[Rfam]
RNA sequence: AAAGCAGGCGAGGUGGUCGCAAUCGGAGUGGAACAUUGGCCUGCGGGUCGGUGGACUGGGUCCGGUUGAGGAAAGUCCGGGCUCCCCAAUGGCCAGGCCUGCUGGGUAACGCCCAGUGCGGGCGACCGUGAGGACAGUGCCACAGAAACACACCGCCGAUGGCUCCGGGUUCGCCCGCUGCACAGGUAAGGGUGCAAGGGUGCGGUAAGAGCGCACCAGCAGCAUCGAGAGGUGCUGGCUCGGUAAACCCCGGCUGGGAGCAAGGCCCAGGGACAACGGUUGGCCAUGACACCCGUCCCGACACAAGUGCGCCGCUCGAGGCCGUUGGUAACAGCGGUCCCAGAUAGAUGAUCGCCCCGGCAGGCUUCGGCCUGCCGAACAGAACCCGGCUUACGUCCUGCUUUCACC
Dot-bracket structure: ((((((((.(.(((((((.((((((((.................................))))))))....[[[.[[[[[((((..........(((.(((((((.....)))))(((((....)))).)((...(((((...........(((((..((...................))..)))..)).......((((((.......)))))).((((((((....))))))).)..)))..))))))))).))))...(((.....(.............................)........)))......((((((((....))))))))..........)))))))............................]]]]]]]].)..))))))))....
Numbered sequence: 001a002a003a004g005c006a007g008g009c010g011a012g013g014u015g016g017u018c019g020c021a022a023u024c025g026g027a028g029u030g031g032a033a034c035a036u037u038g039g040c041c042u043g044c045g046g047g048u049c050g051g052u053g054g055a056c057u058g059g060g061u062c063c064g065g066u067u068g069a070g071g072a073a074a075g076u077c078c079g080g081g082c083u084c085c086c087c088a089a090u091g092g093c094c095a096g097g098c099c100u101g102c103u104g105g106g107u108a109a110c111g112c113c114c115a116g117u118g119c120g121g122g123c124g125a126c127c128g129u130g131a132g133g134a135c136a137g138u139g140c141c142a143c144a145g146a147a148a149c150a151c152a153c154c155g156c157c158g159a160u161g162g163c164u165c166c167g168g169g170u171u172c173g174c175c176c177g178c179u180g181c182a183c184a185g186g187u188a189a190g191g192g193u194g195c196a197a198g199g200g201u202g203c204g205g206u207a208a209g210a211g212c213g214c215a216c217c218a219g220c221a222g223c224a225u226c227g228a229g230a231g232g233u234g235c236u237g238g239c240u241c242g243g244u245a246a247a248c249c250c251c252g253g254c255u256g257g258g259a260g261c262a263a264g265g266c267c268c269a270g271g272g273a274c275a276a277c278g279g280u281u282g283g284c285c286a287u288g289a290c291a292c293c294c295g296u297c298c299c300g301a302c303a304c305a306a307g308u309g310c311g312c313c314g315c316u317c318g319a320g321g322c323c324g325u326u327g328g329u330a331a332c333a334g335c336g337g338u339c340c341c342a343g344a345u346a347g348a349u350g351a352u353c354g355c356c357c358c359g360g361c362a363g364g365c366u367u368c369g370g371c372c373u374g375c376c377g378a379a380c381a382g383a384a385c386c387c388g389g390c391u392u393a394c395g396u397c398c399u400g401c402u403u404u405c406a407c408c
Stems, first nucleotide, its partner, number of pairs: 001404008010394001012356007020068008073392003077389005082260004096255003100252002102116005117131001118129004132250002137248002139244003153191002155187003160182002199217006219239001220237007264313003272302001320339008

The record is a 408-nucleotide RNA from Synechococcus sp. SynAce01, which matches "Bacterial RNase P class A" in Rfam. A search with the family's covariance model found it, with a score of 222 bits. Lineage of the source: Bacteria > Cyanobacteriota > Cyanophyceae > Synechococcales > Synechococcus. The family's consensus secondary structure is taken from published work. From the family's description: Ribonuclease P (RNase P) is a ubiquitous endoribonuclease, found in archaea, bacteria and eukarya as well as chloroplasts and mitochondria.